RNA sequence: CUCCCGAAAGGGCAACCACUGUUCGCAGUGGGCGCAAAGCCUAGGGUCUGCAAUGGAUGAGACUGCCUGGCUACCGAA
Numbered sequence: 001c002u003c004c005c006g007a008a009a010g011g012g013c014a015a016c017c018a019c020u021g022u023u024c025g026c027a028g029u030g031g032g033c034g035c036a037a038a039g040c041c042u043a044g045g046g047u048c049u050g051c052a053a054u055g056g057a058u059g060a061g062a063c064u065g066c067c068u069g070g071c072u073a074c075c076g077a078a
Stems, first nucleotide, its partner, number of pairs: 012035002017030005038072004043068003046063003